[Rfam]
Description:
This 344-nucleotide RNA sequence from candidate division MSBL1 archaeon SCGC-AAA261O19 belongs to the Rfam family "Archaeal signal recognition particle RNA". By type it is a non-coding RNA gene. Clan: SRP clan. The family's consensus secondary structure is taken from published work. Taxonomically the source falls in candidate division MSBL1 (Archaea, Methanobacteriati, Methanobacteriota).

RNA sequence: UGGCGAGCUAGGCUAGGGGGUUAGCGGUCCCUUCUCGCGAAAAUCCGCUAUACGUCGGGCUGAAGCUUGGAAGAGGCGUUCGGAACCAUUCGCCAGCUUGGCUCGCGUCUGAGAAGUCUCGUCCUGCAGGGUUGGCGGUGACGGAACCUCGAUCGUAGGGUUGGGGUAAACCGUUUUUGCCUGCCGAAACCCGCCAGGGGCGGAAGAUUGGGGAAGCUAAAAGCUUCUUCAAGCCGAAUCAGCAGCGGUAGGUAGGACGUUCGACGCUUGCAGGGUUGCGGGAUGGAGAUUGUGAGUCAAGUGUCGGUGAGUGGCGAAGGCGUCCACUCUGAGCAUGCUCGCCA
Numbered sequence: 001u002g003g004c005g006a007g008c009u010a011g012g013c014u015a016g017g018g019g020g021u022u023a024g025c026g027g028u029c030c031c032u033u034c035u036c037g038c039g040a041a042a043a044u045c046c047g048c049u050a051u052a053c054g055u056c057g058g059g060c061u062g063a064a065g066c067u068u069g070g071a072a073g074a075g076g077c078g079u080u081c082g083g084a085a086c087c088a089u090u091c092g093c094c095a096g097c098u099u100g101g102c103u104c105g106c107g108u109c110u111g112a113g114a115a116g117u118c119u120c121g122u123c124c125u126g127c128a129g130g131g132u133u134g135g136c137g138g139u140g141a142c143g144g145a146a147c148c149u150c151g152a153u154c155g156u157a158g159g160g161u162u163g164g165g166g167u168a169a170a171c172c173g174u175u176u177u178u179g180c181c182u183g184c185c186g187a188a189a190c191c192c193g194c195c196a197g198g199g200g201c202g203g204a205a206g207a208u209u210g211g212g213g214a215a216g217c218u219a220a221a222a223g224c225u226u227c228u229u230c231a232a233g234c235c236g237a238a239u240c241a242g243c244a245g246c247g248g249u250a251g252g253u254a255g256g257a258c259g260u261u262c263g264a265c266g267c268u269u270g271c272a273g274g275g276u277u278g279c280g281g282g283a284u285g286g287a288g289a290u291u292g293u294g295a296g297u298c299a300a301g302u303g304u305c306g307g308u309g310a311g312u313g314g315c316g317a318a319g320g321c322g323u324c325c326a327c328u329c330u331g332a333g334c335a336u337g338c339u340c341g342c343c344a
Stems, first nucleotide, its partner, number of pairs: 001344008011061004015033007038057003065334007075324004079319002086314009096302011107290004116284007123274008131265004135260003138177001140175005146167009180256006191248004199240002